[Rfam]
RNA sequence: CAAGUACUAACAGCGCCAGAACUUAUGAGGGUAUCUACAUAGGUAAGAGUUCAUGAACGUGUGGACCAGGACGAUCUAUUGACCAGAUAGCCGCUUAUAAGUUGACGAGGUGAAGGUGUUCGAAACAUUCGGCGGGGACCUUCCGGUAGGCGAUCACUACCGUAGAAGCUGAAACGCAAAACGUCGGGGCGACCUGACGCACAAGGGUUCAGCAUGACGAGGA
Numbered sequence: 001c002a003a004g005u006a007c008u009a010a011c012a013g014c015g016c017c018a019g020a021a022c023u024u025a026u027g028a029g030g031g032u033a034u035c036u037a038c039a040u041a042g043g044u045a046a047g048a049g050u051u052c053a054u055g056a057a058c059g060u061g062u063g064g065a066c067c068a069g070g071a072c073g074a075u076c077u078a079u080u081g082a083c084c085a086g087a088u089a090g091c092c093g094c095u096u097a098u099a100a101g102u103u104g105a106c107g108a109g110g111u112g113a114a115g116g117u118g119u120u121c122g123a124a125a126c127a128u129u130c131g132g133c134g135g136g137g138a139c140c141u142u143c144c145g146g147u148a149g150g151c152g153a154u155c156a157c158u159a160c161c162g163u164a165g166a167a168g169c170u171g172a173a174a175c176g177c178a179a180a181a182c183g184u185c186g187g188g189g190c191g192a193c194c195u196g197a198c199g200c201a202c203a204a205g206g207g208u209u210c211a212g213c214a215u216g217a218c219g220a221g222g223a
Stems, first nucleotide, its partner, number of pairs: 020103008029094001112143005120132004144162006168213006182199007

The family of this 223-nucleotide RNA sequence from Paenibacillus sp. OAS669 is "glmS glucosamine-6-phosphate activated ribozyme aptamer". The match comes from Rfam's covariance-model search (89 bits). It is annotated as a riboswitch. Lineage of the source: Bacteria > Bacilli > Caryophanales > Paenibacillaceae > Paenibacillus.